[Rfam]
The family of this 200-nucleotide RNA sequence from Streptomyces sp. SID7982 is "Actinobacteria sRNA Ms_IGR-5".
A search with the family's covariance model found it, with a score of 101 bits.
On this family, see Li et al., RNA 2013: "Identification of small RNAs in Mycobacterium smegmatis using heterologous Hfq".
RNA sequence: ACACAGGAAAGGAGGUGUUCCGGAAGUGAUUUCUCUUCGGACUCGUGAGGUGGCUGCGGGCUGACGCCCGUCGUCGCACUCUUUUGCAGUGCUAGGCCGGACGCCGGCCAAUCCCAAGCAGUCACCGACCCGCAGGCUCGCCGGUAAGUCCGGCCGGCUCCUCUGUGCACGGAGGAACCAGAGCCUGCGGGUUUCUGCGU
Numbered sequence: 001a002c003a004c005a006g007g008a009a010a011g012g013a014g015g016u017g018u019u020c021c022g023g024a025a026g027u028g029a030u031u032u033c034u035c036u037u038c039g040g041a042c043u044c045g046u047g048a049g050g051u052g053g054c055u056g057c058g059g060g061c062u063g064a065c066g067c068c069c070g071u072c073g074u075c076g077c078a079c080u081c082u083u084u085u086g087c088a089g090u091g092c093u094a095g096g097c098c099g100g101a102c103g104c105c106g107g108c109c110a111a112u113c114c115c116a117a118g119c120a121g122u123c124a125c126c127g128a129c130c131c132g133c134a135g136g137c138u139c140g141c142c143g144g145u146a147a148g149u150c151c152g153g154c155c156g157g158c159u160c161c162u163c164u165g166u167g168c169a170c171g172g173a174g175g176a177a178c179c180a181g182a183g184c185c186u187g188c189g190g191g192u193u194u195c196u197g198c199g200u
Stems, first nucleotide, its partner, number of pairs: 015057003019053001059109005065103001069100001074095001127193012140158006